[Rfam]
RNA: Bacteroidetes FopS (family of paralogous sRNAs)
Organism: Prevotella sp. CAG:1031
RNA sequence: CAGUUUUUCAUGGUAUUAGAUUUAAGGUAAGAAGAUUAUUCGUCGUGAUGACGAAUAAUUUUUUUUUG
Numbered sequence: 001c002a003g004u005u006u007u008u009c010a011u012g013g014u015a016u017u018a019g020a021u022u023u024a025a026g027g028u029a030a031g032a033a034g035a036u037u038a039u040u041c042g043u044c045g046u047g048a049u050g051a052c053g054a055a056u057a058a059u060u061u062u063u064u065u066u067u068g
Base pairs, nucleotide, nucleotide: 038056039055040054041053042052043051044050